[Rfam]
RNA sequence: UGUCUCCUCCACCCCCAUUCAUUGGUGGAUUUCAGCCCGGUGCAUGCAAAUGCCCCGGGCUUUUUUCU
Numbered sequence: 001u002g003u004c005u006c007c008u009c010c011a012c013c014c015c016c017a018u019u020c021a022u023u024g025g026u027g028g029a030u031u032u033c034a035g036c037c038c039g040g041u042g043c044a045u046g047c048a049a050a051u052g053c054c055c056c057g058g059g060c061u062u063u064u065u066u067c068u
Stems, first nucleotide, its partner, number of pairs: 008029006034061007
RNA: Betaproteobacteria toxic small RNA
Organism: Aquabacterium lacunae